Shown here is an 80-nucleotide sequence from Cebus imitator, a member of the family "mir-95 microRNA precursor family". Rfam links the family to the GO terms response to bacterium, cellular response to amino acid stimulus and RISC complex. Taxonomically the source falls in Cebus (Eukaryota, Metazoa, Gnathostomata, Eutheria).
[Rfam]
RNA sequence: CAUUUGGUAGGUGCUCCAUAAAUAUUUAUUGAAGAAAUAAAUAUUUGUUCAAUAAAUAUUUAUGGAGCACCUACCAAAUG
Dot-bracket structure: ((((..((((((.((((((.((((((((((((.(.(.........).))))))))))))).)))))).))))))..))))